[Rfam]
RNA sequence: CGAAGGUGCUCCUCGGUUGGUACGGACAAGGCCCUAGACAAGCCCAAUCCUCCCAGCUCAGGAGCACUUUCCUAUUCCCAGCACACCCAACAGACGAUCAGCGGUGAAAGCAG
Numbered sequence: 001c002g003a004a005g006g007u008g009c010u011c012c013u014c015g016g017u018u019g020g021u022a023c024g025g026a027c028a029a030g031g032c033c034c035u036a037g038a039c040a041a042g043c044c045c046a047a048u049c050c051u052c053c054c055a056g057c058u059c060a061g062g063a064g065c066a067c068u069u070u071c072c073u074a075u076u077c078c079c080a081g082c083a084c085a086c087c088c089a090a091c092a093g094a095c096g097a098u099c100a101g102c103g104g105u106g107a108a109a110g111c112a113g
Stems, first nucleotide, its partner, number of pairs: 002071012015059002017056004024050003031043002096111001098107003

Rfam assigns this 113-nucleotide sequence from Candidatus Protofrankia californiensis to the family "Actinobacteria sRNA Ms_IGR-7". The source organism's lineage runs through Bacteria, Bacillati, Actinomycetota, Actinomycetes and Protofrankia. The pairing is the family consensus, mapped onto this sequence. A search with the family's covariance model found it, with a score of 50 bits.